[Rfam]
RNA sequence: CGCACGCGGGCUGCGGCCGUCUGUCCUUAUGGCAGCGUCCAUCCGGUGCCGGGAAUGGUCCCGGUCACUUGUCCCGCGGAGGCAUAACCGGAAAAGGUUUAAAGAC
Numbered sequence: 001c002g003c004a005c006g007c008g009g010g011c012u013g014c015g016g017c018c019g020u021c022u023g024u025c026c027u028u029a030u031g032g033c034a035g036c037g038u039c040c041a042u043c044c045g046g047u048g049c050c051g052g053g054a055a056u057g058g059u060c061c062c063g064g065u066c067a068c069u070u071g072u073c074c075c076g077c078g079g080a081g082g083c084a085u086a087a088c089c090g091g092a093a094a095a096g097g098u099u100u101a102a103a104g105a106c
Base pairs, nucleotide, nucleotide: 001081003079005078006077007076008075009074010073011071015040016039022034023033025032048065049064050063051062052061053060
Annotation: The record is a 106-nucleotide RNA sequence from Insolitispirillum peregrinum, which matches "rpsB sRNA" in Rfam.